c-di-GMP-I-GGC riboswitch aptamer: an 87-nucleotide RNA from Bacillus sp. PK3_68. Pairs were carried over by alignment from the consensus structure, which is taken from published work. The match comes from Rfam's covariance-model search (66 bits). The organism belongs to Bacillus, within Bacteria.
RNA sequence: GGUGUAAAAGGCAAACCUGGCGAAAGGCAGGGACGCAAAGCUACGGACCUAAGCAGCAGAGACUGUAUGGCCGCCGGGCUGCCAUUC
Numbered sequence: 001g002g003u004g005u006a007a008a009a010g011g012c013a014a015a016c017c018u019g020g021c022g023a024a025a026g027g028c029a030g031g032g033a034c035g036c037a038a039a040g041c042u043a044c045g046g047a048c049c050u051a052a053g054c055a056g057c058a059g060a061g062a063c064u065g066u067a068u069g070g071c072c073g074c075c076g077g078g079c080u081g082c083c084a085u086u087c
Stems, first nucleotide, its partner, number of pairs: 001087001003084002011036002016031004021026001034073001039080004044076003048070002